[Rfam]
RNA sequence: CCAAUGUGGAUACACCCAGGAGGUCACUUUCCCCAGGCUGUGUCCAAGUGGCAUAAGGGAGCACAGGGCUCUGCCCCCAUGAUGUACAGUCCCUUUCCAUGACAUUGGAGAUGAAGCUGGGCCUCAAGUCUGCACCUGCAUAUUCCUACAACUUCUGAGUCCUGUGGACUGUGAUAGAGGAGAUAAACCGUGCAGGAAACAGCC
Numbered sequence: 001c002c003a004a005u006g007u008g009g010a011u012a013c014a015c016c017c018a019g020g021a022g023g024u025c026a027c028u029u030u031c032c033c034c035a036g037g038c039u040g041u042g043u044c045c046a047a048g049u050g051g052c053a054u055a056a057g058g059g060a061g062c063a064c065a066g067g068g069c070u071c072u073g074c075c076c077c078c079a080u081g082a083u084g085u086a087c088a089g090u091c092c093c094u095u096u097c098c099a100u101g102a103c104a105u106u107g108g109a110g111a112u113g114a115a116g117c118u119g120g121g122c123c124u125c126a127a128g129u130c131u132g133c134a135c136c137u138g139c140a141u142a143u144u145c146c147u148a149c150a151a152c153u154u155c156u157g158a159g160u161c162c163u164g165u166g167g168a169c170u171g172u173g174a175u176a177g178a179g180g181a182g183a184u185a186a187a188c189c190g191u192g193c194a195g196g197a198a199a200c201a202g203c204c
Base pairs, nucleotide, nucleotide: 001108002107003106004105005104006103007102008045009044010043011042012041015037016036019030020029021028022027048100049099050098051097057093058092059091060090061087063085064084065083066080135196136195137194138193139192140191141190152182153181154180155179156178159169160168161167162166